Rfam assigns this 83-nucleotide RNA from Musa balbisiana to the family "Plastid-rpl20 3UTR RNA".
RNA sequence: ACCGAUUCCCCGGAAAGGAACUCCGGGAAAAUAGAAUAAAAAUAAAUUUAAGAUAGUAAUAGAAUGAACGAAUAUGUUUCAAU
Numbered sequence: 001a002c003c004g005a006u007u008c009c010c011c012g013g014a015a016a017g018g019a020a021c022u023c024c025g026g027g028a029a030a031a032u033a034g035a036a037u038a039a040a041a042a043u044a045a046a047u048u049u050a051a052g053a054u055a056g057u058a059a060u061a062g063a064a065u066g067a068a069c070g071a072a073u074a075u076g077u078u079u080c081a082a083u
Stems, first nucleotide, its partner, number of pairs: 007029001009027006066079004

A reference for the family is Richter et al. (2023), "Retrograde signaling in plants: A critical review focusing on the GUN pathway and beyond", Plant Commun. Plastid rpl20 is a non-coding RNA (ncRNA) recognised in plastids. The family's consensus secondary structure was predicted with LocARNA. The match comes from Rfam's covariance-model search (61 bits).